RNA sequence: UAGCCAAUCAGUCAAUCUGCUUACCUGAAUGUGUUUCUGCAGAAACACAUUUAGAAAAAGCUGGUGAUAAGAAAGCCAUGUUAUGAGACUUUAAGACACUGAAGUCAUUAAGGCCCCUGAAAAUGGCCACAAGA
Numbered sequence: 001u002a003g004c005c006a007a008u009c010a011g012u013c014a015a016u017c018u019g020c021u022u023a024c025c026u027g028a029a030u031g032u033g034u035u036u037c038u039g040c041a042g043a044a045a046c047a048c049a050u051u052u053a054g055a056a057a058a059a060g061c062u063g064g065u066g067a068u069a070a071g072a073a074a075g076c077c078a079u080g081u082u083a084u085g086a087g088a089c090u091u092u093a094a095g096a097c098a099c100u101g102a103a104g105u106c107a108u109u110a111a112g113g114c115c116c117c118u119g120a121a122a123a124u125g126g127c128c129a130c131a132a133g134a
Base pairs, nucleotide, nucleotide: 003065004064005063006062016043017042018041019040020039075127076126077125078124087114089112090111091110093108095106096105097104
Notes
Small nucleolar RNA SNORA33: a 134-nucleotide RNA from Cervus hanglu. Rfam's curators write: ACA33 is a member of the H/ACA class of snoRNA that guide the sites of modification of uridines to pseudouridines. Pairs were carried over by alignment from the consensus structure, which was predicted with PFOLD. Gene Ontology terms of the family: nucleolus and RNA processing. The family's RNA type in Rfam is H/ACA-box small nucleolar RNA. A search with the family's covariance model found it, with a score of 113 bits.